Shown here is a 126-nucleotide RNA sequence from Agrilus planipennis, a member of the family "R2 RNA element". Gene Ontology term of the family: regulation of reverse transcription. About the family: This family represents the 3' UTR region of the R2 retrotransposable element. The base pairs follow the family's consensus structure, which is taken from published work. By type it is a cis-regulatory element.
[Rfam]
RNA sequence: UCGUAGAACGGUCUGAGGUAGAGGGGUUUUAGUCGGUAGGUCCGAUGACAUCGUCCUCAGGAAUCCGAUACUACCCAGUUGUGAUGGAGGGCUGGGUGUCUUUUGAAGAUUUCCCCUCUUCCACGA
Numbered sequence: 001u002c003g004u005a006g007a008a009c010g011g012u013c014u015g016a017g018g019u020a021g022a023g024g025g026g027u028u029u030u031a032g033u034c035g036g037u038a039g040g041u042c043c044g045a046u047g048a049c050a051u052c053g054u055c056c057u058c059a060g061g062a063a064u065c066c067g068a069u070a071c072u073a074c075c076c077a078g079u080u081g082u083g084a085u086g087g088a089g090g091g092c093u094g095g096g097u098g099u100c101u102u103u104u105g106a107a108g109a110u111u112u113c114c115c116c117u118c119u120u121c122c123a124c125g126a
Stems, first nucleotide, its partner, number of pairs: 001126004017122002020119002023115003032069005041061002044058002047055003071098001073097005